[Rfam]
RNA: L31-Actinobacteria ribosomal protein leader
RNA sequence: GGGGUUCCGGUUCACGUCUCAUCUCAUAGCAGGCGACCCGGCGACC
Numbered sequence: 001g002g003g004g005u006u007c008c009g010g011u012u013c014a015c016g017u018c019u020c021a022u023c024u025c026a027u028a029g030c031a032g033g034c035g036a037c038c039c040g041g042c043g044a045c046c
Stems, first nucleotide, its partner, number of pairs: 003046003007041004015035005022028001